RNA sequence: CGAACCCGCGCGGGAGAGACUCCGGCACAACCAGCGCCGGAGCGCCGAAGGAGCAACCCUCCCCGGAACCUCUCAGGCAAAAGGACCGCGCGGGCCAG
Numbered sequence: 001c002g003a004a005c006c007c008g009c010g011c012g013g014g015a016g017a018g019a020c021u022c023c024g025g026c027a028c029a030a031c032c033a034g035c036g037c038c039g040g041a042g043c044g045c046c047g048a049a050g051g052a053g054c055a056a057c058c059c060u061c062c063c064c065g066g067a068a069c070c071u072c073u074c075a076g077g078c079a080a081a082a083g084g085a086c087c088g089c090g091c092g093g094g095c096c097a098g
Base pairs, nucleotide, nucleotide: 006093007092008091009090010089011088012087013086020042021041022040023039024038025037026036044078045077046076047074048073051072052071053070057066058065
Background:
The family of this 98-nucleotide sequence from Actinoallomurus bryophytorum is "Glycine riboswitch aptamer". Taxonomically the source falls in Actinoallomurus (Bacteria, Actinomycetota, Actinomycetes, Thermomonosporaceae).